[Rfam]
RNA sequence: GGCGAUAAAUGGUCAGUGAAAUAAGCCUUUCGGACCCGGGGGCGGUACCCGGCGCCUCCACCCGAGCCCGUUGAGAAAGCGGGCUCCGGUGGGGGCGAAAUAGGAUCGACGAGGGUGUAAAGACUGUGCUUUCGCCCGGCAUGGUUCCGCCGUUAUCGGGCCGACUCAAUAGUUGCUAAUGACAACUAUGCUAUGGACAACGCUGUCGCCGCGUAA
Numbered sequence: 001g002g003c004g005a006u007a008a009a010u011g012g013u014c015a016g017u018g019a020a021a022u023a024a025g026c027c028u029u030u031c032g033g034a035c036c037c038g039g040g041g042g043c044g045g046u047a048c049c050c051g052g053c054g055c056c057u058c059c060a061c062c063c064g065a066g067c068c069c070g071u072u073g074a075g076a077a078a079g080c081g082g083g084c085u086c087c088g089g090u091g092g093g094g095g096c097g098a099a100a101u102a103g104g105a106u107c108g109a110c111g112a113g114g115g116u117g118u119a120a121a122g123a124c125u126g127u128g129c130u131u132u133c134g135c136c137c138g139g140c141a142u143g144g145u146u147c148c149g150c151c152g153u154u155a156u157c158g159g160g161c162c163g164a165c166u167c168a169a170u171a172g173u174u175g176c177u178a179a180u181g182a183c184a185a186c187u188a189u190g191c192u193a194u195g196g197a198c199a200a201c202g203c204u205g206u207c208g209c210c211g212c213g214u215a216a
Base pairs, nucleotide, nucleotide: 001136002135003134004133005132014126015125016124017123026115027114028113030112031111032110036052037051038050039049040048053097054096055095056094057093058092059091060090061089137152138151139150140149
RNA: permuted transfer-messenger RNA
Organism: Stappia sediminis